[Rfam]
RNA sequence: ACACGAGAGAGGAGGUGGUCCUAAGUUGUAUUCACACAGGACUCGUGAGGUGACUGUCCGCUAGCGGAUAGCACGCGUAGGGACUUUGAGCAGCGAUACAACACGAGCCACCUUCGGCUCAUCGCCUGCUUCGCGUGUGUGCCUGAUAGCGAAAUACCAGGCAGCCACCGGGCUCCCGGGGCUCUUGAGCACCGGUCCGGCUCGGGCUCGGACGUUUGACGGCGUCCGGGAGCCGCCCCGG
Number, nucleotide and partner (000 for none) at each position: 001a000002c000003a000004c000005g000006a000007g000008a000009g000010a000011g000012g000013a000014g058015g057016u056017g055018g054019u053020c000021c000022u000023a000024a000025g000026u000027u000028g000029u000030a000031u000032u000033c000034a000035c000036a000037c000038a000039g000040g000041a000042c000043u000044c000045g000046u000047g000048a000049g000050g000051u000052g000053a019054c018055u017056g016057u015058c014059c151060g150061c149062u148063a147064g000065c145066g000067g143068a000069u141070a140071g000072c000073a000074c000075g000076c000077g000078u000079a000080g000081g000082g000083a000084c000085u000086u000087u000088g000089a000090g000091c000092a000093g000094c000095g000096a000097u000098a000099c000100a000101a000102c000103a000104c000105g000106a000107g000108c000109c000110a000111c000112c000113u000114u000115c000116g000117g000118c000119u000120c000121a000122u000123c000124g000125c000126c000127u000128g000129c000130u000131u000132c000133g000134c000135g000136u000137g000138u000139g000140u070141g069142c000143c067144u000145g065146a000147u063148a062149g061150c060151g059152a000153a000154a000155u000156a000157c000158c000159a000160g000161g000162c000163a000164g000165c000166c000167a000168c000169c000170g000171g234172g233173c232174u231175c230176c229177c228178g227179g226180g000181g225182c224183u000184c000185u205186u204187g203188a202189g201190c200191a000192c000193c000194g000195g000196u000197c000198c000199g000200g190201c189202u188203c187204g186205g185206g000207c000208u000209c000210g000211g000212a000213c000214g000215u000216u000217u000218g000219a000220c000221g000222g000223c000224g182225u181226c179227c178228g177229g176230g175231a174232g173233c172234c171235g000236c000237c000238c000239c000240g000241g000
RNA: Actinobacteria sRNA Ms_IGR-5